Rfam assigns this 84-nucleotide RNA from Tupaia belangeri to the family "mir-500 microRNA precursor family". The base pairs follow the family's consensus structure, which was predicted with RNAalifold. Taxonomically the source falls in Tupaia belangeri (Eukaryota, Eumetazoa, Bilateria, Tupaiidae).

RNA sequence: UGGUCCCCUAUCUAAUCCUUGCUACCUGGGUGAGAAUGCUAUCUCUGUGCAAUGCUCCUGGACAAGGAUUCUGAGAGUGAGAGC
Numbered sequence: 001u002g003g004u005c006c007c008c009u010a011u012c013u014a015a016u017c018c019u020u021g022c023u024a025c026c027u028g029g030g031u032g033a034g035a036a037u038g039c040u041a042u043c044u045c046u047g048u049g050c051a052a053u054g055c056u057c058c059u060g061g062a063c064a065a066g067g068a069u070u071c072u073g074a075g076a077g078u079g080a081g082a083g084c
Stems, first nucleotide, its partner, number of pairs: 014070007026061005032055001037051003